[Rfam]
RNA sequence: CCGUCCAGCCUUCAGUUCCAGCUCCUCUUGCCAAAGCUGUGCUAGAGGACUUGGGGCGGACGUAGAUUGAACAAUCUCUUAAAUUAGGAGGGCUUCUUUGAGUGUUGAGCUGUCCUCAAAGGCGCAAGAGGACAUC
Numbered sequence: 001c002c003g004u005c006c007a008g009c010c011u012u013c014a015g016u017u018c019c020a021g022c023u024c025c026u027c028u029u030g031c032c033a034a035a036g037c038u039g040u041g042c043u044a045g046a047g048g049a050c051u052u053g054g055g056g057c058g059g060a061c062g063u064a065g066a067u068u069g070a071a072c073a074a075u076c077u078c079u080u081a082a083a084u085u086a087g088g089a090g091g092g093c094u095u096c097u098u099u100g101a102g103u104g105u106u107g108a109g110c111u112g113u114c115c116u117c118a119a120a121g122g123c124g125c126a127a128g129a130g131g132a133c134a135u136c
Stems, first nucleotide, its partner, number of pairs: 002062005010055002021051001023049001025047004030042001075131006084121002088117006096109003100105001
RNA: Small Cajal body specific RNA 11
Organism: Varanus komodoensis